[Rfam]
RNA sequence: CUUCCGGAUCCCUAACUCAGCCCCUCUAUGAGCCCACUAUGUUUUCCUUAUAUGAUCGGGUUCCUUUGUGGGCAAUGCCGCUUGCCAGGAGCCUGAGAUGAUUAUGAACACGUGUCAGGAGAGUUGGGGCCAGGGGACCGGGCG
Numbered sequence: 001c002u003u004c005c006g007g008a009u010c011c012c013u014a015a016c017u018c019a020g021c022c023c024c025u026c027u028a029u030g031a032g033c034c035c036a037c038u039a040u041g042u043u044u045u046c047c048u049u050a051u052a053u054g055a056u057c058g059g060g061u062u063c064c065u066u067u068g069u070g071g072g073c074a075a076u077g078c079c080g081c082u083u084g085c086c087a088g089g090a091g092c093c094u095g096a097g098a099u100g101a102u103u104a105u106g107a108a109c110a111c112g113u114g115u116c117a118g119g120a121g122a123g124u125u126g127g128g129g130c131c132a133g134g135g136g137a138c139c140g141g142g143c144g
Stems, first nucleotide, its partner, number of pairs: 001144001003142001005141001007139001009137005020130005056096006063089002068085006
small Cajal body-specific RNA 17: a 144-nucleotide RNA sequence from Chrysochloris asiatica.
A reference for the family is Tycowski et al. (2004), "Guide RNAs with 5' Caps and Novel Box C/D snoRNA-like Domains for Modification of snRNAs in Metazoa", Curr Biol.
NCBI's taxonomy places the organism under Eukaryota, Metazoa, Bilateria, Gnathostomata, Chrysochloris.
From the family's description: scaRNAs are a specific class of small nuclear RNAs which localise to the Cajal bodies and guide the modification of RNA polymerase II transcribed spliceosomal RNAs U1, U2, U4, U5 and U12. The complete human U12-22/U4-8 scaRNA is composed of two tandem C/D box domains (termed U12-22 and U4-8).